MIR1513 microRNA precursor family: a 91-nucleotide sequence from Glycine max.
Nucleotides: 091
Base pairs, nucleotide, nucleotide: 001091002090003089006086007085008084009083010082011081012080013079014078015077016076017075018074019073020072021071022070023069024068025067026066027065028064029063031061032060033059034058035057038054041051042050
Number, partner (000 for none) and nucleotide at each position: 001091g002090a003089u004000c005000a006086g007085a008084u009083a010082u011081g012080a013079g014078a015077g016076a017075a018074a019073g020072c021071c022070a023069u024068g025067a026066c027065u028064u029063a030000c031061a032060c033059a034058c035057a036000c037000a038054u039000u040000g041051a042050a043000a044000u045000c046000u047000u048000a049000g050042u051041u052000u053000u054038a055000a056000a057035u058034g059033u060032g061031u062000a063029u064028a065027a066026g067025u068024c069023a070022u071021g072020g073019u074018u075017u076016u077015c078014u079013c080012u081011c082010a083009u084008a085007u086006c087000u088000a089003a090002u091001c

The sequence is in the family's curated seed alignment. Pairs were carried over by alignment from the consensus structure, which was predicted with RNAalifold. Its family is annotated with RISC complex and miRNA-mediated post-transcriptional gene silencing in the Gene Ontology.